Rfam assigns this 275-nucleotide sequence from Cercocebus atys to the family "Mason-Pfizer monkey virus packaging signal". Rfam describes the family as follows. This family represents a group of sequences that are related to the Mason-Pfizer monkey virus (MPMV) packaging signal. Rfam links the family to the GO term viral genome packaging. The literature on the family includes a 2004 paper in Virus Res by Mustafa et al., "Mutational analysis of the predicted secondary RNA structure of the Mason-Pfizer monkey virus packaging signal".
[Rfam]
RNA sequence: UGGCGCCUCAACGUGGGGCCCAGAAACGAGGGAUUCCGUGAGGAAGAGGACGCCAAAGAACGUGGACCGUCAAGGUGAAACUAAACUCCACCGAUCACCGCGGGAACCUGCCCCGUCAGGGUCGAAGGUAAGUGACGCACCCGAAAUGGGACAAGAAUUAAGCCAACAUCAAAUUUAUGUAGGACAAUUAAAAGAGGCCUUAAAGACACGAGGAGUAAAGGUUAAAGGCAAUGAUUUGUUUAAAUUUUUUAACUUUGUAAAAGACAUCUGCCCUU
Numbered sequence: 001u002g003g004c005g006c007c008u009c010a011a012c013g014u015g016g017g018g019c020c021c022a023g024a025a026a027c028g029a030g031g032g033a034u035u036c037c038g039u040g041a042g043g044a045a046g047a048g049g050a051c052g053c054c055a056a057a058g059a060a061c062g063u064g065g066a067c068c069g070u071c072a073a074g075g076u077g078a079a080a081c082u083a084a085a086c087u088c089c090a091c092c093g094a095u096c097a098c099c100g101c102g103g104g105a106a107c108c109u110g111c112c113c114c115g116u117c118a119g120g121g122u123c124g125a126a127g128g129u130a131a132g133u134g135a136c137g138c139a140c141c142c143g144a145a146a147u148g149g150g151a152c153a154a155g156a157a158u159u160a161a162g163c164c165a166a167c168a169u170c171a172a173a174u175u176u177a178u179g180u181a182g183g184a185c186a187a188u189u190a191a192a193a194g195a196g197g198c199c200u201u202a203a204a205g206a207c208a209c210g211a212g213g214a215g216u217a218a219a220g221g222u223u224a225a226a227g228g229c230a231a232u233g234a235u236u237u238g239u240u241u242a243a244a245u246u247u248u249u250u251a252a253c254u255u256u257g258u259a260a261a262a263g264a265c266a267u268c269u270g271c272c273c274u275u
Stems, first nucleotide, its partner, number of pairs: 006032002009030001013027002037049001039047001088128002091124001095121001096119001099115002102112002137152001140150004159202003162198003210250007219237006260275002263272001265270001
By type it is a cis-regulatory element.
NCBI's taxonomy places the organism under Eukaryota, Sarcopterygii, Boreoeutheria, Simiiformes, Cercocebus.
A search with the family's covariance model found it, with a score of 228 bits.